[Rfam]
About this RNA
This 107-nucleotide sequence from Hamadaea sp. belongs to the Rfam family "Glycine riboswitch aptamer". The organism belongs to Hamadaea, within Bacteria.
RNA sequence: UACGCCCGCGCGGGAGAGUCCGCGUACCCGGCAUAGACCGGGCAGAACGGCGCCGAAGGGGCAAUUCCUCCCCGGAACCUCUCAGGCACCCGGACCGCACGGGUCGG
Numbered sequence: 001u002a003c004g005c006c007c008g009c010g011c012g013g014g015a016g017a018g019u020c021c022g023c024g025u026a027c028c029c030g031g032c033a034u035a036g037a038c039c040g041g042g043c044a045g046a047a048c049g050g051c052g053c054c055g056a057a058g059g060g061g062c063a064a065u066u067c068c069u070c071c072c073c074g075g076a077a078c079c080u081c082u083c084a085g086g087c088a089c090c091c092g093g094a095c096c097g098c099a100c101g102g103g104u105c106g107g
Base pairs, nucleotide, nucleotide: 006102007101008100010098011097012096013095020050021049022048052087053086054085055083056082059081060080061079065075066074